About this RNA:
The record is a 135-nucleotide RNA sequence from Strigops habroptila, which matches "Small nucleolar RNA SNORA14" in Rfam. From the family's description: ACA14 is a member of the H/ACA class of snoRNA that guide the sites of modification of uridines to pseudouridines.
RNA sequence: CUGCAUUCUUAACCCUCCCGGCAGCUCUGUUAUCAGCUUCCAGGGUAAGAGUAAAUGUAAGAGAAAACUGUUGAUUAAUCCAGAAUGUAGAGCUCCCCUCCCGUGACUCUUCAUUAUUUCACAUCUUCAACAGUU
Numbered sequence: 001c002u003g004c005a006u007u008c009u010u011a012a013c014c015c016u017c018c019c020g021g022c023a024g025c026u027c028u029g030u031u032a033u034c035a036g037c038u039u040c041c042a043g044g045g046u047a048a049g050a051g052u053a054a055a056u057g058u059a060a061g062a063g064a065a066a067a068c069u070g071u072u073g074a075u076u077a078a079u080c081c082a083g084a085a086u087g088u089a090g091a092g093c094u095c096c097c098c099u100c101c102c103g104u105g106a107c108u109c110u111u112c113a114u115u116a117u118u119u120c121a122c123a124u125c126u127u128c129a130a131c132a133g134u135u
Stems, first nucleotide, its partner, number of pairs: 003058004008051003016045003020041002023038003063135002069129002073125002084115004089110002092107001098103001
Overview
Rfam 15.1 lists 848 matches to the family in 633 species. Taxonomically the source falls in Strigops (Eukaryota, Eumetazoa, Vertebrata, Dipnotetrapodomorpha). Its family is annotated with nucleolus and RNA processing in the Gene Ontology. Pairs were carried over by alignment from the consensus structure, which was predicted with RNAfold. A search with the family's covariance model found it, with a score of 80 bits.